[Rfam]
RNA: Small nucleolar RNA Z247
RNA sequence: CAGCUCGAUGAGGACGACAUCGUCAUCUACCUCCUCACCGGGCUCGACUCCAGCUAUGACCCCCUGGUCACCUUGGUCACCACUCGGGUUGAUGCAAUCUCCCUCAACGACCUCUACUCCCACAUGCUCGAUUUUGAGA
Numbered sequence: 001c002a003g004c005u006c007g008a009u010g011a012g013g014a015c016g017a018c019a020u021c022g023u024c025a026u027c028u029a030c031c032u033c034c035u036c037a038c039c040g041g042g043c044u045c046g047a048c049u050c051c052a053g054c055u056a057u058g059a060c061c062c063c064c065u066g067g068u069c070a071c072c073u074u075g076g077u078c079a080c081c082a083c084u085c086g087g088g089u090u091g092a093u094g095c096a097a098u099c100u101c102c103c104u105c106a107a108c109g110a111c112c113u114c115u116a117c118u119c120c121c122a123c124a125u126g127c128u129c130g131a132u133u134u135u136g137a138g139a
Base pairs, nucleotide, nucleotide: 004138005137006136007135008134088108089107090106091105092104
Dot-bracket structure: ...(((((...............................................................................(((((...........))))).........................))))).